[Rfam]
RNA sequence: UUAUAGGAAGUUUUAGCUAUUGAACUGCUUUGCUCCUGUCUUUCAAAGAACAAAUUAUUCUUUGACAGAGAGGGACAAAACAGUUCAAUAGCUAAAACGUCCUAUAAC
Numbered sequence: 001u002u003a004u005a006g007g008a009a010g011u012u013u014u015a016g017c018u019a020u021u022g023a024a025c026u027g028c029u030u031u032g033c034u035c036c037u038g039u040c041u042u043u044c045a046a047a048g049a050a051c052a053a054a055u056u057a058u059u060c061u062u063u064g065a066c067a068g069a070g071a072g073g074g075a076c077a078a079a080a081c082a083g084u085u086c087a088a089u090a091g092c093u094a095a096a097a098c099g100u101c102c103u104a105u106a107a108c
Stems, first nucleotide, its partner, number of pairs: 001107006011097017029069004034064001049059002052056001

The record is a 108-nucleotide RNA sequence from Plutella xylostella, which matches "mir-8517 microRNA precursor family" in Rfam. It scores 92 bits against the family's covariance model. The organism belongs to Plutella, within Eukaryota.